[Rfam]
RNA sequence: CGGUUGAGAGGGCUGCUUUGGCGGUCCGCCGGAUGAAAAUCCGCUCGGCUG
Numbered sequence: 001c002g003g004u005u006g007a008g009a010g011g012g013c014u015g016c017u018u019u020g021g022c023g024g025u026c027c028g029c030c031g032g033a034u035g036a037a038a039a040u041c042c043g044c045u046c047g048g049c050u051g
Stems, first nucleotide, its partner, number of pairs: 001051008010027007030043005
Rfam assigns this 51-nucleotide RNA to the family "DUF3800-VI RNA". By type it is a cis-regulatory element. The base pairs follow the family's consensus structure, which is taken from published work. Rfam's curators put it in the seed alignment.